Shown here is an 87-nucleotide RNA sequence from Idiomarina baltica, a member of the family "t44 RNA".
Pairs were carried over by alignment from the consensus structure, which was predicted with LocARNA.

RNA sequence: UUCACUUUAAAUUUAAACCACACAUAUAUCGACACAUACCACGGGGUGCCCAAUCGGGUCGUGCUAUGGGGUAUAUGGAGGCUUAAC
Numbered sequence: 001u002u003c004a005c006u007u008u009a010a011a012u013u014u015a016a017a018c019c020a021c022a023c024a025u026a027u028a029u030c031g032a033c034a035c036a037u038a039c040c041a042c043g044g045g046g047u048g049c050c051c052a053a054u055c056g057g058g059u060c061g062u063g064c065u066a067u068g069g070g071g072u073a074u075a076u077g078g079a080g081g082c083u084u085a086a087c
Stems, first nucleotide, its partner, number of pairs: 023077008035068004040063004048059004